[Rfam]
RNA sequence: CUUCACACUACAUCCUCGCGACUAAUGACAAUCCUUAACUCAUCAUUAAGCUAAAGUCUCUCAUUAGCCGCGCGAAAUGCUGUAACGGAAGAUCCUAUUUUAGACACAAUAACAAUACGUUAACUUUUUUUGUCAUCGAUUCUUAGAAGAAAGGGGCCAAAAUAGGCCCCUUUCU
Numbered sequence: 001c002u003u004c005a006c007a008c009u010a011c012a013u014c015c016u017c018g019c020g021a022c023u024a025a026u027g028a029c030a031a032u033c034c035u036u037a038a039c040u041c042a043u044c045a046u047u048a049a050g051c052u053a054a055a056g057u058c059u060c061u062c063a064u065u066a067g068c069c070g071c072g073c074g075a076a077a078u079g080c081u082g083u084a085a086c087g088g089a090a091g092a093u094c095c096u097a098u099u100u101u102a103g104a105c106a107c108a109a110u111a112a113c114a115a116u117a118c119g120u121u122a123a124c125u126u127u128u129u130u131u132g133u134c135a136u137c138g139a140u141u142c143u144u145a146g147a148a149g150a151a152a153g154g155g156g157c158c159a160a161a162a163u164a165g166g167c168c169c170c171u172u173u174c175u
Base pairs, nucleotide, nucleotide: 001091002090003089004088006087010083011082012081017074018073019072020071022067023066024065025064026063027062028061097128153170154169155168156167157166158165
A member of the RNA family "SraG RNA" from Yersinia ruckeri, 175 nucleotides long. This RNA was discovered in E. coli during a large scale screen. It is annotated as a small RNA. A reference for the family is Fontaine et al. (2016), "The small RNA SraG participates in PNPase homeostasis", RNA. It scores 153 bits against the family's covariance model.